Overview: Rfam assigns this 74-nucleotide RNA from Crocodylus porosus to the family "Mammalian CPEB3 ribozyme".
RNA sequence: AUAGUGGAAGCAGGCCGUAGCAGGAGUGCUCACAGCAUGGCCUGUCAGAUGCCAAUGAAUCUGCCAAUUCUACU
Numbered sequence: 001a002u003a004g005u006g007g008a009a010g011c012a013g014g015c016c017g018u019a020g021c022a023g024g025a026g027u028g029c030u031c032a033c034a035g036c037a038u039g040g041c042c043u044g045u046c047a048g049a050u051g052c053c054a055a056u057g058a059a060u061c062u063g064c065c066a067a068u069u070c071u072a073c074u
Base pairs, nucleotide, nucleotide: 013042014041015040016039019074020073022071023070024069025068026038027037028036046063047062048061049060050059052057
Pairs were carried over by alignment from the consensus structure, which is taken from published work. A search with the family's covariance model found it, with a score of 47 bits.